[Rfam]
Nucleotides: 328
Stems, first nucleotide, its partner, number of pairs: 001328004007322003012269004016264002021063004034048005073312005083243004093107004108124006125239005131233001145224006270300005276294005
Number, partner (000 for none) and nucleotide at each position: 001328u002327c003326a004325g005000a006000a007322g008321g009320a010000a011000g012269c013268u014267c015266a016264c017263c018000a019000c020000u021063g022062a023061g024060g025000u026000c027000a028000c029000u030000u031000g032000c033000u034048g035047a036046g037045u038044g039000c040000u041000g042000g043000u044038c045037a046036c047035u048034c049000c050000c051000u052000u053000c054000u055000c056000u057000c058000u059000g060024c061023c062022u063021c064000u065000g066000g067000g068000a069000a070000g071000g072000u073312c074311u075310g076309a077308g078000a079000c080000a081000a082000g083243a084242g085241c086240c087000a088000g089000u090000a091000g092000c093107u094106g095105c096104c097000c098000u099000u100000g101000c102000a103000a104096g105095g106094c107093a108124c109123c110122c111121c112120c113119u114000g115000a116000u117000g118000c119113a120112g121111g122110g123109g124108g125239a126238u127237g128236a129235g130000g131233u132000a133000c134000c135000a136000g137000g138000g139000a140000g141000g142000c143000u144000g145224g146223g147222c148221c149220c150219u151000a152000u153000c154000a155000a156000g157000g158000g159000a160000g161000a162000g163000g164000c165000a166000c167000a168000a169000g170000a171000a172000g173000u174000c175000u176000g177000a178000g179000a180000g181000g182000a183000g184000g185000u186000u187000a188000u189000u190000c191000u192000c193000c194000c195000u196000u197000g198000a199000c200000u201000g202000a203000u204000g205000c206000c207000c208000a209000u210000g211000c212000c213000c214000u215000g216000u217000g218000c219150a220149g221148g222147g223146u224145c225000u226000u227000g228000a229000g230000a231000c232000a233131g234000g235129c236128u237127c238126a239125u240086g241085g242084c243083u244000g245000g246000c247000a248000c249000c250000u251000u252000u253000g254000a255000g256000u257000c258000c259000a260000a261000u262000g263017g264016g265000a266015u267014g268013a269012g270300g271299u272298g273297a274296g275000g276294c277293u278292u279291g280290c281000u282000c283000c284000c285000c286000a287000c288000a289000u290280g291279c292278a293277g294276g295000a296274c297273u298272c299271a300270c301000a302000a303000c304000c305000c306000a307000a308077u309076u310075c311074a312073g313000a314000c315000u316000a317000c318000u319000c320009u321008c322007c323000c324000u325004c326003u327002g328001a
Record summary: The family of this 328-nucleotide RNA from Crocodylus porosus is "Nuclear RNase P". Ribonuclease P (RNase P) is a ubiquitous endoribonuclease, found in archaea, bacteria and eukarya as well as chloroplasts and mitochondria. It scores 187 bits against the family's covariance model.